[Rfam]
RNA sequence: GGACGGACCUCUGGAGAGACCAAUGACGGCGCCGAAGGGGCAAGAGCUUUUGAAAGCUUAAUCUCUCAGGCAAAAGGACAGAGUUAUAAAA
Numbered sequence: 001g002g003a004c005g006g007a008c009c010u011c012u013g014g015a016g017a018g019a020c021c022a023a024u025g026a027c028g029g030c031g032c033c034g035a036a037g038g039g040g041c042a043a044g045a046g047c048u049u050u051u052g053a054a055a056g057c058u059u060a061a062u063c064u065c066u067c068a069g070g071c072a073a074a075a076g077g078a079c080a081g082a083g084u085u086a087u088a089a090a091a
Stems, first nucleotide, its partner, number of pairs: 007085001009083005020029002031071003034067002038065003045058005
Description
Rfam assigns this 91-nucleotide RNA from Ruminiclostridium herbifermentans to the family "Glycine riboswitch aptamer". NCBI's taxonomy places the organism under Bacteria, Bacillota, Clostridia, Oscillospiraceae, Ruminiclostridium. The match comes from Rfam's covariance-model search (60 bits).